[Rfam]
A member of the RNA family "Glycine riboswitch aptamer" from Rhodoferax ferrireducens, 104 nucleotides long. The pairing is the family consensus, mapped onto this sequence.
RNA sequence: UCCCGCGGGUCAGGAGAGAGCCGCCCCUUGAGGUGGCCGCCGAAGGCGCAGAGUUGCUGAUCGCAGCAGUUUGAACGCUCAGGCAAAAGGACUGACAAACGCUU
Numbered sequence: 001u002c003c004c005g006c007g008g009g010u011c012a013g014g015a016g017a018g019a020g021c022c023g024c025c026c027c028u029u030g031a032g033g034u035g036g037c038c039g040c041c042g043a044a045g046g047c048g049c050a051g052a053g054u055u056g057c058u059g060a061u062c063g064c065a066g067c068a069g070u071u072u073g074a075a076c077g078c079u080c081a082g083g084c085a086a087a088a089g090g091a092c093u094g095a096c097a098a099a100c101g102c103u104u
Stems, first nucleotide, its partner, number of pairs: 009096005020037004039084003042080002046078003052072002

A search with the family's covariance model found it, with a score of 50 bits. Taxonomically the source falls in Rhodoferax ferrireducens (Bacteria, Pseudomonadota, Betaproteobacteria, Comamonadaceae).